Rfam assigns this 64-nucleotide sequence to the family "DUF3800-VIII RNA". The family's consensus secondary structure is taken from published work.
RNA sequence: UAAGCUCUGUCAAAUCGAAGCCCCAAGUUCCUACUUGGGAGGAUAGUAGAAAUGAUGGGGCUUA
Numbered sequence: 001u002a003a004g005c006u007c008u009g010u011c012a013a014a015u016c017g018a019a020g021c022c023c024c025a026a027g028u029u030c031c032u033a034c035u036u037g038g039g040a041g042g043a044u045a046g047u048a049g050a051a052a053u054g055a056u057g058g059g060g061c062u063u064a
Stems, first nucleotide, its partner, number of pairs: 001064012015051001016049001022039007

From the family's description: Bacteroidetes, Cyanobacteria, Firmicutes, Planctomycetes (1 example), Proteobacteria, Tenericutes (1 example).